[Rfam]
RNA sequence: GGAUGUGAGGGUGAUCUGGCUGCGACAUGUGCUACCCCACUGAUCACCAGAGUGGAUUCGGCUGAUCUGGCUGGCUAGGUGGGUGUCCCCUUCCUCCCUCACUGCUUCAUGUACAUCCCUCCUGAAGGAGCAUGUUUGGUUGAAGAAAAUGGCUUUCCCCAAUAGAGGUGUACCAUUCACUGGUCAAGGGUAUACGGUAGCUGCGCUCCCCUGCUAGAACAUCCAGAUAAGCUUCUGGCAUGAAGAUUCAGGCAUUGUAAAAUCUGUCAUACCUCCUGGAUGAAAGCACAUCAAGGAUGUGAGGUAUGACCUGUGCUGUAC
Dot-bracket structure: (((.(((((((.((...((....(((((.((((.(((((..((((.((...........))..)))))))..))...)))).))))).)).))..)))))))...)))........(((((((((.(.......)))))(((......(......)...)))..)))).).............................(.(....(.(..(((......(((.....................)))....)))..).)..).).................(.(.((((((((.(.........).)))..)))))..).)
This 321-nucleotide sequence from Patagioenas fasciata belongs to the Rfam family "7SK RNA". The literature on the family includes a 1991 paper in Mol Cell Biol by Wassarman and Steitz, "Structural analyses of the 7SK ribonucleoprotein (RNP), the most abundant human small RNP of unknown function". About the family: 7SK was discovered as an abundant small nuclear RNA in the mid-70s but a possible function has only recently been suggested. The source organism's lineage runs through Eukaryota, Metazoa, Amniota, Sauria and Patagioenas fasciata.